[Rfam]
RNA: Rhodo-rpoB RNA
Organism: Maritimibacter fusiformis
RNA sequence: GGAUCGGGAGGGCGCCGGUGGGACGGCACCCGGGAAUUGAUCCGAACCCCCCAUCUCGAACGGCGCGCGGCCGGGGCCCGACGGCUGGCGCG
Numbered sequence: 001g002g003a004u005c006g007g008g009a010g011g012g013c014g015c016c017g018g019u020g021g022g023a024c025g026g027c028a029c030c031c032g033g034g035a036a037u038u039g040a041u042c043c044g045a046a047c048c049c050c051c052c053a054u055c056u057c058g059a060a061c062g063g064c065g066c067g068c069g070g071c072c073g074g075g076g077c078c079c080g081a082c083g084g085c086u087g088g089c090g091c092g
Stems, first nucleotide, its partner, number of pairs: 001043005010031003014027004064092005069086005